RNA sequence: CCAAUAGCCGGCUAGGGUUCCGGCUCGCCACAGGCGAGCGACUGGUCCGAGAGCUAGCGACCUCCAGCGAGGUUACACGGCGGGACAAAAGCCCGGGAGAA
Numbered sequence: 001c002c003a004a005u006a007g008c009c010g011g012c013u014a015g016g017g018u019u020c021c022g023g024c025u026c027g028c029c030a031c032a033g034g035c036g037a038g039c040g041a042c043u044g045g046u047c048c049g050a051g052a053g054c055u056a057g058c059g060a061c062c063u064c065c066a067g068c069g070a071g072g073u074u075a076c077a078c079g080g081c082g083g084g085a086c087a088a089a090a091g092c093c094c095g096g097g098a099g100a101a
Stems, first nucleotide, its partner, number of pairs: 007058002010055003015048002020045002022042001023039006059074006076096001078099001082094003
Annotation: The record is a 101-nucleotide RNA sequence from Ectopseudomonas mendocina, which matches "Guanidine-I riboswitch aptamer" in Rfam. The base pairs follow the family's consensus structure.